[Rfam]
RNA: Insect-Specific Flavivirus 3' UTR repeats Ra
Organism: Quang Binh virus
RNA sequence: GCCACCGCAAGGGAGAGGGAUCCCCUCUCGGGUUUGGACGACACCCCGGCCCCA
Numbered sequence: 001g002c003c004a005c006c007g008c009a010a011g012g013g014a015g016a017g018g019g020a021u022c023c024c025c026u027c028u029c030g031g032g033u034u035u036g037g038a039c040g041a042c043a044c045c046c047c048g049g050c051c052c053c054a
Stems, first nucleotide, its partner, number of pairs: 005049003013029006030046004035041001